[Rfam]
RNA sequence: UCCCUGAAUGUAAUCGAGGGAGUGACUCUCGCCAGAGGGGCGAGGGCCGGAGCAAGGUCAGCUUCGGCAAAAUUAUUAACUUGGAUGCAGAGACCACAUCCAUGAUAC
Numbered sequence: 001u002c003c004c005u006g007a008a009u010g011u012a013a014u015c016g017a018g019g020g021a022g023u024g025a026c027u028c029u030c031g032c033c034a035g036a037g038g039g040g041c042g043a044g045g046g047c048c049g050g051a052g053c054a055a056g057g058u059c060a061g062c063u064u065c066g067g068c069a070a071a072a073u074u075a076u077u078a079a080c081u082u083g084g085a086u087g088c089a090g091a092g093a094c095c096a097c098a099u100c101c102a103u104g105a106u107a108c
Stems, first nucleotide, its partner, number of pairs: 001021005027045006046068008079103001082102006

Shown here is a 108-nucleotide sequence, a member of the family "engA RNA". By type it is a cis-regulatory element.